[Rfam]
Nucleotides: 105
Stems, first nucleotide, its partner, number of pairs: 002045012015032002018029002058100007065092007074085003
Number, partner (000 for none) and nucleotide at each position: 001000c002045a003044u004043u005042u006041g007040g008039a009038g010037g011036u012035c013034a014000a015032u016031a017000u018029c019028g020000a021000a022000c023000a024000g025000a026000u027000u028019c029018g030000u031016u032015a033000g034013u035012g036011g037010c038009u039008u040007u041006c042005a043004g044003a045002u046000u047000c048000g049000g050000a051000c052000u053000u054000c055000a056000u057000u058100a059099a060098c061097g062096u063095a064094g065092c066091g067090u068089c069088u070087c071086g072000c073000c074085g075084u076083a077000u078000g079000c080000c081000a082000u083076u084075a085074c086071c087070g088069a089068g090067a091066u092065g093000a094064c095063u096062a097061c098060g099059u100058u101000u102000u103000u104000u105000u
Shown here is a 105-nucleotide RNA from Furfurilactobacillus rossiae, a member of the family "23S methyl RNA motif".
The organism belongs to Furfurilactobacillus rossiae, within Bacteria.
Rfam classes the family as a cis-regulatory element.
The literature on the family includes a 2007 paper in Nucleic Acids Res by Weinberg et al., "Identification of 22 candidate structured RNAs in bacteria using the CMfinder comparative genomics pipeline".
The match comes from Rfam's covariance-model search (52 bits).